[Rfam]
Nucleotides: 105
Base pairs, nucleotide, nucleotide: 002104004102005101012095013094014093015092016091017090018089019088020087022085023084024083026081027080028079030077031076032075033074034073035072036071037070038069039068040067041066042065043064044063045062046061047060048059050057
Number, partner (000 for none) and nucleotide at each position: 001000a002104a003000a004102u005101a006000g007000c008000a009000c010000u011000g012095u013094u014093u015092u016091g017090c018089u019088a020087u021000c022085c023084u024083c025000u026081g027080c028079u029000a030077a031076u032075a033074a034073u035072a036071c037070a038069a039068u040067g041066a042065c043064a044063c045062a046061u047060g048059g049000a050057a051000a052000a053000u054000u055000u056000a057050u058000c059048u060047c061046a062045u063044g064043u065042g066041u067040c068039a069038u070037u071036g072035u073034g074033u075032u076031a077030u078000a079028g080027g081026c082000c083024g084023a085022g086000a087020a088019u089018a090017g091016c092015a093014a094013a095012a096000a097000g098000u099000g100000c101005u102004a103000c104002u105000c
Rfam assigns this 105-nucleotide RNA from Prunus persica to the family "MIR6274 microRNA precursor family". Taxonomically the source falls in Prunus (Eukaryota, Embryophyta, Mesangiospermae, Rosales). Pairs were carried over by alignment from the consensus structure, which was predicted with RNAalifold.